Source information:
This 127-nucleotide sequence from Roseitalea porphyridii belongs to the Rfam family "Alphaproteobacterial ar14". A reference for the family is Robledo et al. (2017), "A conserved alpha-proteobacterial small RNA contributes to osmoadaptation and symbiotic efficiency of rhizobia on legume roots", Environ Microbiol.
[Rfam]
RNA sequence: GUCUGUCAGGAACGCGGCUACCUCCUCCCAGCCGCCUACUGAAGGUGUUUUGCAAGGGCACCUCCUCCCGCCCUUGCAACUCGUGUUGAGCCGGACCGCUACCUCCUCCCAGCGGUCCGGCUUUUCU
Numbered sequence: 001g002u003c004u005g006u007c008a009g010g011a012a013c014g015c016g017g018c019u020a021c022c023u024c025c026u027c028c029c030a031g032c033c034g035c036c037u038a039c040u041g042a043a044g045g046u047g048u049u050u051u052g053c054a055a056g057g058g059c060a061c062c063u064c065c066u067c068c069c070g071c072c073c074u075u076g077c078a079a080c081u082c083g084u085g086u087u088g089a090g091c092c093g094g095a096c097c098g099c100u101a102c103c104u105c106c107u108c109c110c111a112g113c114g115g116u117c118c119g120g121c122u123u124u125u126c127u
Base pairs, nucleotide, nucleotide: 007041008040009039012037014035015034016033017032018031050079051078052077053076054075055074056073057072058071089122090121091120092119093118094117095116096115097114098113099112